[Rfam]
RNA sequence: CACAUUCCCGAGGGGAGCCCCGCGCCAAGGGGCUGAGAAACUGUUGGCCAGCACGCCCGCAGCGCCUGCGGCAUGCCCGGCAGCACAGUGACCCUUUGAACCUGAUCCGGAUCAUGCCGGCGAAGGGACGGACACGCGCCCCGCA
Numbered sequence: 001c002a003c004a005u006u007c008c009c010g011a012g013g014g015g016a017g018c019c020c021c022g023c024g025c026c027a028a029g030g031g032g033c034u035g036a037g038a039a040a041c042u043g044u045u046g047g048c049c050a051g052c053a054c055g056c057c058c059g060c061a062g063c064g065c066c067u068g069c070g071g072c073a074u075g076c077c078c079g080g081c082a083g084c085a086c087a088g089u090g091a092c093c094c095u096u097u098g099a100a101c102c103u104g105a106u107c108c109g110g111a112u113c114a115u116g117c118c119g120g121c122g123a124a125g126g127g128a129c130g131g132a133c134a135c136g137c138g139c140c141c142c143g144c145a
Stems, first nucleotide, its partner, number of pairs: 008131003011095004017033005040089005101126003107120004

Shown here is a 145-nucleotide RNA sequence from Vandammella animalimorsus, a member of the family "TPP riboswitch aptamer (THI element)". The source organism's lineage runs through Bacteria, Pseudomonadati, Pseudomonadota, Comamonadaceae and Vandammella.